[Rfam]
RNA sequence: GCAGUGUUUCGGCUUGUCGCCGGCAUCAUGACGGUGCGGGAGGAAAGUCCGGGCAGCAUAGGGUACUCCACUUCCUAAUAUAGAAGCUAUUGGCGACAGUAGGCUCAGGCAGAAGAGAACGACCGCUCCGCAAGGAGUAAGGGUGAGAAGGCGGUGUAAGAGACCACCGGCUGAUGGGUGAUCAUCAGGCCGUGCCGGCUGGAGGCUGCAAGUUCGCGUAAACCAUCGUUUGAGGGCGACCCGUCCGAACUUCCCGAUGGAGGGUAGAAUGCUGGAGCUGCGGGGUGACUCGCAGCGUAGAGAAAUGACAAGCCGUGAGGCAUUGGAAACGGUGUCUCAUGACAGAACCCGGCUUACAGAGGCACUGCUUUC
Numbered sequence: 001g002c003a004g005u006g007u008u009u010c011g012g013c014u015u016g017u018c019g020c021c022g023g024c025a026u027c028a029u030g031a032c033g034g035u036g037c038g039g040g041a042g043g044a045a046a047g048u049c050c051g052g053g054c055a056g057c058a059u060a061g062g063g064u065a066c067u068c069c070a071c072u073u074c075c076u077a078a079u080a081u082a083g084a085a086g087c088u089a090u091u092g093g094c095g096a097c098a099g100u101a102g103g104c105u106c107a108g109g110c111a112g113a114a115g116a117g118a119a120c121g122a123c124c125g126c127u128c129c130g131c132a133a134g135g136a137g138u139a140a141g142g143g144u145g146a147g148a149a150g151g152c153g154g155u156g157u158a159a160g161a162g163a164c165c166a167c168c169g170g171c172u173g174a175u176g177g178g179u180g181a182u183c184a185u186c187a188g189g190c191c192g193u194g195c196c197g198g199c200u201g202g203a204g205g206c207u208g209c210a211a212g213u214u215c216g217c218g219u220a221a222a223c224c225a226u227c228g229u230u231u232g233a234g235g236g237c238g239a240c241c242c243g244u245c246c247g248a249a250c251u252u253c254c255c256g257a258u259g260g261a262g263g264g265u266a267g268a269a270u271g272c273u274g275g276a277g278c279u280g281c282g283g284g285g286u287g288a289c290u291c292g293c294a295g296c297g298u299a300g301a302g303a304a305a306u307g308a309c310a311a312g313c314c315g316u317g318a319g320g321c322a323u324u325g326g327a328a329a330c331g332g333u334g335u336c337u338c339a340u341g342a343c344a345g346a347a348c349c350c351g352g353c354u355u356a357c358a359g360a361g362g363c364a365c366u367g368c369u370u371u372c
Base pairs, nucleotide, nucleotide: 001368002367003366004365005364006363007362008361009360010359011357012313013312014311015310016309017308018307020040021039023037024036025035026034027033045355046354047353049352050351051350052349053348054208055207056206057205061242062241063240064239066204067203068202069201070200071086072085073084074083087102089100090099091098092097103199104198108196109195110194111193123142124141125138126137127136128135129134150168151167153165154164155163170190171188172187173186174185175184176183177182212270213269214268215267223260224259225258226257227256234246235245236244237243277296278295279294280293281292282291283290284289
The family of this 372-nucleotide RNA from Hoylesella marshii is "Bacterial RNase P class A".
Clan: RNaseP clan.
It scores 198 bits against the family's covariance model.
The organism belongs to Hoylesella marshii, within Bacteria.
The family's consensus secondary structure is taken from published work.
Rfam classes the family as a ribozyme.
Gene Ontology terms of the family: ribonuclease P activity, dimeric ribonuclease P complex and tRNA processing.